RNA sequence: UAGUAGGGAAGAUCGGCUAAACCCGCCGCGAUGCGCGGCAACGCCAAUCCACCUGCGACGCGCAGG
Numbered sequence: 001u002a003g004u005a006g007g008g009a010a011g012a013u014c015g016g017c018u019a020a021a022c023c024c025g026c027c028g029c030g031a032u033g034c035g036c037g038g039c040a041a042c043g044c045c046a047a048u049c050c051a052c053c054u055g056c057g058a059c060g061c062g063c064a065g066g
Stems, first nucleotide, its partner, number of pairs: 011049003015045003025039005052066005
This 66-nucleotide sequence from Lentibacillus cibarius belongs to the Rfam family "Bacillaceae-1 RNA".
It scores 42 bits against the family's covariance model.
The family's consensus secondary structure is taken from published work.